[Rfam]
RNA: Small nucleolar RNA SNORA81
RNA sequence: CCCUUCUUUUAAAGCACCCUGCUAAAAUUGUGGGGGUGAAGCCUCCGGGCUUGGCUCUUGCGGCCAUGUAAGCAUGGGUACACCAAGGAAGGAUAGAAAAGGCCCAGAGUCGCAAGUGAGGCUAGGACGGACCUCUUUCUUAAUGUCCAGUGUCCUUUGUCUCAAGGCUCUGUGCUACAUUA
Dot-bracket structure: ................((.((((...((.(..((.((.(((((....))))).)).)).....).))...))))..))......................(((.(((((..............(.(..(((..............)))..).)..............))))).)))......
Numbered sequence: 001c002c003c004u005u006c007u008u009u010u011a012a013a014g015c016a017c018c019c020u021g022c023u024a025a026a027a028u029u030g031u032g033g034g035g036g037u038g039a040a041g042c043c044u045c046c047g048g049g050c051u052u053g054g055c056u057c058u059u060g061c062g063g064c065c066a067u068g069u070a071a072g073c074a075u076g077g078g079u080a081c082a083c084c085a086a087g088g089a090a091g092g093a094u095a096g097a098a099a100a101g102g103c104c105c106a107g108a109g110u111c112g113c114a115a116g117u118g119a120g121g122c123u124a125g126g127a128c129g130g131a132c133c134u135c136u137u138u139c140u141u142a143a144u145g146u147c148c149a150g151u152g153u154c155c156u157u158u159g160u161c162u163c164a165a166g167g168c169u170c171u172g173u174g175c176u177a178c179a180u181u182a
Stems, first nucleotide, its partner, number of pairs: 017078002020074004027067002030064001033058002036055002039052005101176003105172005124153001126151001129148003